[Rfam]
RNA sequence: ACUUAAAACGUCAUUGAGUGCAGCGUUGAUGAAACCACAUCAAACCUAAUGUUUCGUCAACUCUGCACUCAAUUAUGUUUUUA
Numbered sequence: 001a002c003u004u005a006a007a008a009c010g011u012c013a014u015u016g017a018g019u020g021c022a023g024c025g026u027u028g029a030u031g032a033a034a035c036c037a038c039a040u041c042a043a044a045c046c047u048a049a050u051g052u053u054u055c056g057u058c059a060a061c062u063c064u065g066c067a068c069u070c071a072a073u074u075a076u077g078u079u080u081u082u083a
Stems, first nucleotide, its partner, number of pairs: 006080006013073011025061004030056006

Source information
The record is an 83-nucleotide sequence from Helianthus annuus, which matches "MIR397 microRNA precursor family" in Rfam. Gene Ontology terms of the family: RISC complex and miRNA-mediated post-transcriptional gene silencing. A reference for the family is Wu et al. (2009), "Rice MicroRNA effector complexes and targets", Plant Cell.